The family of this 59-nucleotide sequence from Streptomyces sp. SID8455 is "Streptomyces RNA 2736".
Rfam classes the family as a small RNA.
On this family, see Vockenhuber et al., RNA Biol 2011: "Deep sequencing-based identification of small non-coding RNAs in Streptomyces coelicolor".
The base pairs follow the family's consensus structure.
About the family: Identified by deep sequencing of transcriptome at the end of exponential growth phase. Appears smaller on northern blot than sequencing transcript.
The source organism's lineage runs through Bacteria, Actinomycetota, Kitasatosporales, Streptomycetaceae and Streptomyces.

RNA sequence: CGGCCGGAUCCCGUGGGGGGAAUCCGCUCCGGGAUAUGGGAAGCGCCCUGACCGUCAAC
Numbered sequence: 001c002g003g004c005c006g007g008a009u010c011c012c013g014u015g016g017g018g019g020g021a022a023u024c025c026g027c028u029c030c031g032g033g034a035u036a037u038g039g040g041a042a043g044c045g046c047c048c049u050g051a052c053c054g055u056c057a058a059c
Stems, first nucleotide, its partner, number of pairs: 001031003005026005010020003038048003